[Rfam]
RNA sequence: GGGAGUGGAUGGUGCCUGGUGGCUCCCGUCGUCUUCAAAACGACUGCGAGGCGCAUCGCGUCUUGGGUGGGUUCGAUUCCCAUGCACUCCC
Numbered sequence: 001g002g003g004a005g006u007g008g009a010u011g012g013u014g015c016c017u018g019g020u021g022g023c024u025c026c027c028g029u030c031g032u033c034u035u036c037a038a039a040a041c042g043a044c045u046g047c048g049a050g051g052c053g054c055a056u057c058g059c060g061u062c063u064u065g066g067g068u069g070g071g072u073u074c075g076a077u078u079c080c081c082a083u084g085c086a087c088u089c090c091c
Stems, first nucleotide, its partner, number of pairs: 001091007009083001011026002014023003028044005047065005068082004
Dot-bracket structure: (((((((.(.((.(((....))).)).(((((.......)))))..(((((.........)))))..((((.......))))).)))))))

A member of the RNA family "Selenocysteine transfer RNA" from a Gemmatimonadaceae bacterium, 91 nucleotides long. Pairs were carried over by alignment from the consensus structure, which is taken from published work. The match comes from Rfam's covariance-model search (74 bits).